Description
A member of the RNA family "Small nucleolar RNA Z13/snr52" from Armillaria ostoyae, 107 nucleotides long. Gene Ontology terms of the family: RNA processing and nucleolus. A search with the family's covariance model found it, with a score of 66 bits. By type it is a C/D-box small nucleolar RNA.
RNA sequence: CCAUUUUUCCUGAUGAAACUAGAUACGGAUGUAGAGUCACAGACUCGUUGUCCGAGAGCGCUUAAAACCAUGUGGAUUAUUCCGUUGCCUUCCUUCUGAUCCUCUUU
Numbered sequence: 001c002c003a004u005u006u007u008u009c010c011u012g013a014u015g016a017a018a019c020u021a022g023a024u025a026c027g028g029a030u031g032u033a034g035a036g037u038c039a040c041a042g043a044c045u046c047g048u049u050g051u052c053c054g055a056g057a058g059c060g061c062u063u064a065a066a067a068c069c070a071u072g073u074g075g076a077u078u079a080u081u082c083c084g085u086u087g088c089c090u091u092c093c094u095u096c097u098g099a100u101c102c103u104c105u106u107u
Stems, first nucleotide, its partner, number of pairs: 003106001026084004